[Rfam]
RNA sequence: GGCCUCCCUCUGUGGGGCGAUCAAUUGCAGGGCCCCCAGAUUGAUCACUCUGCAGAGGGAGGCC
Dot-bracket structure: (((((((((((((((((.((((((((...((....)).)))))))).)))))))))))))))))
RNA: mir-9242 microRNA precursor family